[Rfam]
This 62-nucleotide RNA sequence from Hymenochirus boettgeri belongs to the Rfam family "Small nucleolar RNA Z39". Gene Ontology terms of the family: RNA processing and nucleolus. Taxonomically the source falls in Hymenochirus (Eukaryota, Deuterostomia, Craniata, Anura). By type it is a C/D-box small nucleolar RNA. It scores 74 bits against the family's covariance model.
RNA sequence: GUACAGAUGAUGAGAGCAUAUCAGUAUGAGAAACUGUGAUACUGUAAACGCUUUCUGAUGUA
Numbered sequence: 001g002u003a004c005a006g007a008u009g010a011u012g013a014g015a016g017c018a019u020a021u022c023a024g025u026a027u028g029a030g031a032a033a034c035u036g037u038g039a040u041a042c043u044g045u046a047a048a049c050g051c052u053u054u055c056u057g058a059u060g061u062a
Stems, first nucleotide, its partner, number of pairs: 002062004012054002015052003022044006